[Rfam]
Overview:
Small Cajal body specific RNA 11: a 136-nucleotide RNA sequence from Mus spicilegus. Gene Ontology terms of the family: nucleolus, RNA processing and Cajal body.

RNA sequence: UUGUCCUGUGCCUGUAACUGCUACCCUGUGCUCAGUCCUAACAGGGUCGUCUGGCAGGACACACAGUGAUUUCCCUCUCAGUUUAGGAGGGCUGUCCUAAGAAUAGGGCUGGCUCUUAAAGGCACGAGAGGACAAU
Number, nucleotide and partner (000 for none) at each position: 001u000002u061003g060004u059005c058006c057007u056008g055009u000010g000011c054012c053013u000014g000015u000016a000017a000018c000019u000020g050021c049022u000023a000024c046025c045026c044027u043028g042029u041030g000031c000032u000033c000034a000035g000036u000037c000038c000039u000040a000041a029042c028043a027044g026045g025046g024047u000048c000049g021050u020051c000052u000053g012054g011055c008056a007057g006058g005059a004060c003061a002062c000063a000064c000065a000066g000067u000068g000069a000070u000071u000072u000073c000074c131075c130076u129077c128078u127079c126080a000081g123082u122083u121084u120085a000086g000087g117088a116089g115090g114091g113092c112093u111094g109095u108096c107097c106098u105099a104100a000101g000102a000103a000104u099105a098106g097107g096108g095109c094110u000111g093112g092113c091114u090115c089116u088117u087118a000119a000120a084121g083122g082123c081124a000125c000126g079127a078128g077129a076130g075131g074132a000133c000134a000135a000136u000
On this family, see Darzacq et al., EMBO J 2002: "Cajal body-specific small nuclear RNAs: a novel class of 2'-O-methylation and pseudouridylation guide RNAs". Rfam's curators write: scaRNAs are a specific class of small nuclear RNAs which localise to the Cajal bodies and guide the modification of RNA polymerase II transcribed spliceosomal RNAs U1, U2, U4, U5 and U12. ACA57 belongs to the H/ACA box class of guide RNAs as it has the predicted hairpin-hinge-hairpin-tail structure, conserved H/ACA-box motifs and is found associated with GAR1. ACA57 is predicted to guide the pseudouridylation of the U5 spliceosomal RNA at position U43.